[Rfam]
RNA: t44 RNA
RNA sequence: CCGGGGCUAAAUCAACGCCGCACACGCACCGGCACAUGUGUCUGGGUGCCUCGCUUGGCUACGCCGGGUGGGGUUGAUACAUGGGGCGCGUGGAGGACUAAC
Numbered sequence: 001c002c003g004g005g006g007c008u009a010a011a012u013c014a015a016c017g018c019c020g021c022a023c024a025c026g027c028a029c030c031g032g033c034a035c036a037u038g039u040g041u042c043u044g045g046g047u048g049c050c051u052c053g054c055u056u057g058g059c060u061a062c063g064c065c066g067g068g069u070g071g072g073g074u075u076g077a078u079a080c081a082u083g084g085g086g087c088g089c090g091u092g093g094a095g096g097a098c099u100a101a102c
Stems, first nucleotide, its partner, number of pairs: 023092005029086002035083008048074008